[Rfam]
RNA sequence: AUGAGGGUGACCGAGUGUGGGGAGGAAGCGCGGAGCGAAGCGGCGAGCCGAUGGACAAGAACCGGAUAGAAGGCGUUGCCGAGCAGGGCGAGCGGGCACGAAUCCGCGAAGCUCUCGUGAUCAAAGCGAGGUGGCGUAAAUCCGGCGGUUGUGCAGUGAAGGAGUGCGUUC
Numbered sequence: 001a002u003g004a005g006g007g008u009g010a011c012c013g014a015g016u017g018u019g020g021g022g023a024g025g026a027a028g029c030g031c032g033g034a035g036c037g038a039a040g041c042g043g044c045g046a047g048c049c050g051a052u053g054g055a056c057a058a059g060a061a062c063c064g065g066a067u068a069g070a071a072g073g074c075g076u077u078g079c080c081g082a083g084c085a086g087g088g089c090g091a092g093c094g095g096g097c098a099c100g101a102a103u104c105c106g107c108g109a110a111g112c113u114c115u116c117g118u119g120a121u122c123a124a125a126g127c128g129a130g131g132u133g134g135c136g137u138a139a140a141u142c143c144g145g146c147g148g149u150u151g152u153g154c155a156g157u158g159a160a161g162g163a164g165u166g167c168g169u170u171c
Base pairs, nucleotide, nucleotide: 001016002015005012006011028171030169031168032167036162040157041156043154044153045152046150047149048148049147050146062145063144064143065142066141067140073137074136075135077133078132079131080130083127086114087113088112089111092107093106094105095104
Dot-bracket structure: ((..((....))..))...........(.(((...(...((.((((((((...........((((((.....(((.((((..(..((((..((((........))))...))))............)..)))).)))..))))))))))).))).))....)....))).)
Description:
Shown here is a 171-nucleotide sequence from Allochromatium vinosum, a member of the family "Group II catalytic intron D1-D4-3". A search with the family's covariance model found it, with a score of 108 bits.